The family of this 180-nucleotide sequence from Populus trichocarpa x Populus deltoides is "MIR159 microRNA precursor family". A reference for the family is Rajagopalan et al. (2006), "A diverse and evolutionarily fluid set of microRNAs in Arabidopsis thaliana", Genes Dev. Lineage of the source: Eukaryota > Embryophyta > Tracheophyta > Magnoliopsida > Populus.

[Rfam]
RNA sequence: GAGGUGCUCCUUUUAGUCCAAUACGGAGGGCUGAGAAGCGGCUAGAGCUGCCAUCUCAUGCAUUUAGGCAAUGCUUAACAUUUGACGAAGAGAGGUUAAGCUUGGCCACUUGCAUGGUGUGGGAGCAACUCCUUCCGCAUGCUUUGCUCGCCCAUUGGACUGAAGGGAGCUCCUGGUUUU
Numbered sequence: 001g002a003g004g005u006g007c008u009c010c011u012u013u014u015a016g017u018c019c020a021a022u023a024c025g026g027a028g029g030g031c032u033g034a035g036a037a038g039c040g041g042c043u044a045g046a047g048c049u050g051c052c053a054u055c056u057c058a059u060g061c062a063u064u065u066a067g068g069c070a071a072u073g074c075u076u077a078a079c080a081u082u083u084g085a086c087g088a089a090g091a092g093a094g095g096u097u098a099a100g101c102u103u104g105g106c107c108a109c110u111u112g113c114a115u116g117g118u119g120u121g122g123g124a125g126c127a128a129c130u131c132c133u134u135c136c137g138c139a140u141g142c143u144u145u146g147c148u149c150g151c152c153c154a155u156u157g158g159a160c161u162g163a164a165g166g167g168a169g170c171u172c173c174u175g176g177u178u179u180u
Stems, first nucleotide, its partner, number of pairs: 004172001006170006014162007048125002051122003057116004065108001